[Rfam]
RNA: MIR1846 microRNA precursor family
Organism: Oryza sativa
RNA sequence: CCUGUCCCUCCCACCGAGCAGCCGGAUCUCCCAGUGAGUAGGCCCGGGCCGCCAGAUCCGGUGACCCCGGUCUCCUCGCCGGUGUAUCCGGCGCCGCAGGGAGGGACGAG
Dot-bracket structure: ....((((((((.....((.(((((((.(.((.(((((.(((((.(((.((((......)))).))).))))).))))).)).).)))))))))....))))))))....
Numbered sequence: 001c002c003u004g005u006c007c008c009u010c011c012c013a014c015c016g017a018g019c020a021g022c023c024g025g026a027u028c029u030c031c032c033a034g035u036g037a038g039u040a041g042g043c044c045c046g047g048g049c050c051g052c053c054a055g056a057u058c059c060g061g062u063g064a065c066c067c068c069g070g071u072c073u074c075c076u077c078g079c080c081g082g083u084g085u086a087u088c089c090g091g092c093g094c095c096g097c098a099g100g101g102a103g104g105g106a107c108g109a110g
Stems, first nucleotide, its partner, number of pairs: 005106008018094002021092007029084001031082002034079005040073005046067003050063004